The record is a 93-nucleotide RNA sequence, which matches "DUF3800-VII RNA" in Rfam.
Rfam's curators put it in the seed alignment.
Rfam classes the family as a small RNA.
[Rfam]
RNA sequence: AUAAGGGAGGCUCCUGGAGAACGGUUGGUCAUCUGUUAAGGAUGGCAGCAUCUGUAGAGAUGUGGGCUCCUACCGCUGGGGGCUUUUUCAUAU
Number, nucleotide and partner (000 for none) at each position: 001a087002u000003a085004a084005g083006g000007g000008a000009g000010g000011c080012u000013c079014c078015u000016g076017g000018a000019g000020a000021a000022c075023g074024g073025u072026u000027g070028g046029u045030c044031a043032u042033c041034u040035g000036u000037u000038a000039a000040g034041g033042a032043u031044g030045g029046c028047a000048g000049c062050a061051u060052c059053u000054g000055u000056a000057g000058a000059g052060a051061u050062g049063u000064g000065g000066g000067c000068u000069c000070c027071u000072a025073c024074c023075g022076c016077u000078g014079g013080g011081g000082g000083c005084u004085u003086u000087u001088u000089c000090a000091u000092a000093u000